[Rfam]
RNA sequence: UGAGUUGUGCAAAAGUGCUUACAGUGCAGGUAGCAUUUUGGUAUCUACUGCAGUGGAAGCACUUCUGGCAUUACAAU
Numbered sequence: 001u002g003a004g005u006u007g008u009g010c011a012a013a014a015g016u017g018c019u020u021a022c023a024g025u026g027c028a029g030g031u032a033g034c035a036u037u038u039u040g041g042u043a044u045c046u047a048c049u050g051c052a053g054u055g056g057a058a059g060c061a062c063u064u065c066u067g068g069c070a071u072u073a074c075a076a077u
Stems, first nucleotide, its partner, number of pairs: 004074002007071001009069002013064008022055002025052003029049005
Shown here is a 77-nucleotide RNA sequence from Gopherus evgoodei, a member of the family "mir-17 microRNA precursor family". Gene Ontology terms of the family: RISC complex and miRNA-mediated post-transcriptional gene silencing. This family represents the microRNA (miRNA) precursor mir-17, family, which includes mir-20, mir-91, and mir-103. miRNAs are transcribed as ~70nt precursors (modelled here) and subsequently processed by the Dicer enzyme to give a ~22nt product. Pairs were carried over by alignment from the consensus structure, which was predicted with RNAalifold. On this family, see Liu et al., J Mol Biol 2025: "Structural Features Within Precursor microRNA-20a Regulate Dicer-TRBP Processing".